[Rfam]
RNA sequence: AAAGGCACUCUAUUCCCUACUUAGUGCACUACUUUGGGCUCUGUUCAAAAGUAGUGCACUAUAAAGGGAAUAGGGUGCCAUUU
Numbered sequence: 001a002a003a004g005g006c007a008c009u010c011u012a013u014u015c016c017c018u019a020c021u022u023a024g025u026g027c028a029c030u031a032c033u034u035u036g037g038g039c040u041c042u043g044u045u046c047a048a049a050a051g052u053a054g055u056g057c058a059c060u061a062u063a064a065a066g067g068g069a070a071u072a073g074g075g076u077g078c079c080a081u082u083u
Base pairs, nucleotide, nucleotide: 001083002082003081005078006077007076008075009074010073012071013070014069015068016067017066018065022061023060024059025058026057027056028055029054030053
Background: Rfam assigns this 83-nucleotide sequence from Hucho hucho to the family "mir-130 microRNA precursor family". The family's consensus secondary structure was predicted with PFOLD. Its family is annotated with miRNA-mediated post-transcriptional gene silencing and RISC complex in the Gene Ontology.